[Rfam]
RNA sequence: UUGUGCCUGGUUCCCUGUAUGCCACAAGCACGGUCCAAUCACCUCUGGAUUGGCUCUUGCCGGUGGCAUGCACGGAGCCAAGCAUAC
Numbered sequence: 001u002u003g004u005g006c007c008u009g010g011u012u013c014c015c016u017g018u019a020u021g022c023c024a025c026a027a028g029c030a031c032g033g034u035c036c037a038a039u040c041a042c043c044u045c046u047g048g049a050u051u052g053g054c055u056c057u058u059g060c061c062g063g064u065g066g067c068a069u070g071c072a073c074g075g076a077g078c079c080a081a082g083c084a085u086a087c
Stems, first nucleotide, its partner, number of pairs: 002086005008080007016072009028060002
Rfam assigns this 87-nucleotide RNA from Hevea brasiliensis to the family "mir-160 microRNA precursor family". For this family Rfam cites "Prediction of plant microRNA targets" (Rhoades et al., Cell, 2002). The organism belongs to Hevea, within Eukaryota. A search with the family's covariance model found it, with a score of 68 bits. Gene Ontology terms of the family: miRNA-mediated post-transcriptional gene silencing and RISC complex.